Description:
This 50-nucleotide sequence from Dictyostelium discoideum belongs to the Rfam family "Class I RNA from Dictyostelium".

RNA sequence: GUUGACCUCACAGCAAUUAACUAGUUUUAAAGAAACCCCCUUGUCAACUG
Numbered sequence: 001g002u003u004g005a006c007c008u009c010a011c012a013g014c015a016a017u018u019a020a021c022u023a024g025u026u027u028u029a030a031a032g033a034a035a036c037c038c039c040c041u042u043g044u045c046a047a048c049u050g
Stems, first nucleotide, its partner, number of pairs: 001048006
Rfam describes the family as follows. Dictyostelium Class I RNA was first reported for Aspegren et al. 2004 in Dictyostelium discoideum. Sucgang et al. 2011 identify putative homologs of Class I RNA in D. discoideum and D. purpureum. Avesson et al. 2011 report that Class I RNA present a down regulation during the development of social amoeba Dictyostelium discoideum, they also found that deletion of one of the Class I RNAs, DdR-21, results in aberrant development. The source organism's lineage runs through Eukaryota, Amoebozoa, Eumycetozoa, Dictyostelium and Dictyostelium discoideum. Rfam's curators put it in the seed alignment.